[Rfam]
RNA sequence: GCUCAAAUGAUGUGAACGAAACAGUAUGAGCAACUAUGACACUGUAAACGCUUUCUGAUGUG
Numbered sequence: 001g002c003u004c005a006a007a008u009g010a011u012g013u014g015a016a017c018g019a020a021a022c023a024g025u026a027u028g029a030g031c032a033a034c035u036a037u038g039a040c041a042c043u044g045u046a047a048a049c050g051c052u053u054u055c056u057g058a059u060g061u062g
Stems, first nucleotide, its partner, number of pairs: 002062001004060002012054001015052001017050001022044004027039001
Shown here is a 62-nucleotide RNA from Eudromia elegans, a member of the family "Small nucleolar RNA Z39". Rfam classes the family as a C/D-box small nucleolar RNA. On this family, see Chen et al., Nucleic Acids Res 2003: "The high diversity of snoRNAs in plants: identification and comparative study of 120 snoRNA genes from Oryza sativa". A search with the family's covariance model found it, with a score of 57 bits. Pairs were carried over by alignment from the consensus structure, which was predicted with PFOLD.